[Rfam]
Source information:
The family of this 344-nucleotide RNA from Candidatus Uabimicrobium amorphum is "Bacterial RNase P class A". Pairs were carried over by alignment from the consensus structure, which is taken from published work.

RNA sequence: AGAGUAAAAAAAACGAUCGCUGUAAAUUUUACAGAGGAAAGUCCGGACAUCACAGGACAAGGUGGUGGAUAACAUCCACCGAGAGCAAUCUUAGGGAAAGUGCCGCAGAAAAUAUACCGCCUAUUUAUAGGUAAGGGUGAAAUGGUGAGGUAAGAGCUCACCGCGGAAAUGGUGACAUUUCUGGCAGGGCAAACCCCACCUGAUGAGAGGUCAAAUAAAGGAGAAGAGGCUGUCCGUCUCGUUUGACUCCAGGGUAGACCGUAUGAGGUAAAUGGCAACAUUUAUCCUAGAUAAAUGAUCGUUGCCCUUUGGGAACAGAAUCCGGCUUAUUUUUUGCUCUUAGC
Numbered sequence: 001a002g003a004g005u006a007a008a009a010a011a012a013a014c015g016a017u018c019g020c021u022g023u024a025a026a027u028u029u030u031a032c033a034g035a036g037g038a039a040a041g042u043c044c045g046g047a048c049a050u051c052a053c054a055g056g057a058c059a060a061g062g063u064g065g066u067g068g069a070u071a072a073c074a075u076c077c078a079c080c081g082a083g084a085g086c087a088a089u090c091u092u093a094g095g096g097a098a099a100g101u102g103c104c105g106c107a108g109a110a111a112a113u114a115u116a117c118c119g120c121c122u123a124u125u126u127a128u129a130g131g132u133a134a135g136g137g138u139g140a141a142a143u144g145g146u147g148a149g150g151u152a153a154g155a156g157c158u159c160a161c162c163g164c165g166g167a168a169a170u171g172g173u174g175a176c177a178u179u180u181c182u183g184g185c186a187g188g189g190c191a192a193a194c195c196c197c198a199c200c201u202g203a204u205g206a207g208a209g210g211u212c213a214a215a216u217a218a219a220g221g222a223g224a225a226g227a228g229g230c231u232g233u234c235c236g237u238c239u240c241g242u243u244u245g246a247c248u249c250c251a252g253g254g255u256a257g258a259c260c261g262u263a264u265g266a267g268g269u270a271a272a273u274g275g276c277a278a279c280a281u282u283u284a285u286c287c288u289a290g291a292u293a294a295a296u297g298a299u300c301g302u303u304g305c306c307c308u309u310u311g312g313g314a315a316c317a318g319a320a321u322c323c324g325g326c327u328u329a330u331u332u333u334u335u336g337c338u339c340u341u342a343g344c
Base pairs, nucleotide, nucleotide: 001340002339003338004337005336006335007334008333009332010331011330012303013302014301015300016299017298018297020034021033022032023031024030025029039328040327041326043325044324045323046322047321048205049204050203051202055235056234057233058232060201061200062199063198064197065079066078067077068076069075080094081092082091083090084089095196096195100194101193102190103189104188117136118135119132120131121130122129123128144162145161146160147159148158149157163185164183165182166181167180168179169178170177171176209260210259211258212257220250221249222248223247227239228238229237230236267286268285269284270283271282272281273280274279
Lineage of the source: Bacteria > Pseudomonadati > Planctomycetota > Candidatus Uabimicrobiales > Candidatus Uabimicrobium. It scores 299 bits against the family's covariance model.